A member of the RNA family "Plastid-atpF group II-D1 intron" from Rhabdodendron amazonicum, 53 nucleotides long. From the family's description: Plastid atpF is a non-coding RNA (ncRNA) recognised in plastids. It has been reported in the intron group II-D1 region of ATP synthase (atpF) genes. For this family Rfam cites "Retrograde signaling in plants: A critical review focusing on the GUN pathway and beyond" (Richter et al., Plant Commun, 2023). The sequence is in the family's curated seed alignment. The organism belongs to Rhabdodendron, within Eukaryota.

[Rfam]
RNA sequence: UAGAAAUAUUUCGAUAUAGAACACUCAUGUCGAUAAAAUUUUUUUAUUUGAAC
Numbered sequence: 001u002a003g004a005a006a007u008a009u010u011u012c013g014a015u016a017u018a019g020a021a022c023a024c025u026c027a028u029g030u031c032g033a034u035a036a037a038a039u040u041u042u043u044u045u046a047u048u049u050g051a052a053c
Base pairs, nucleotide, nucleotide: 011033012032013031014030015029016028017027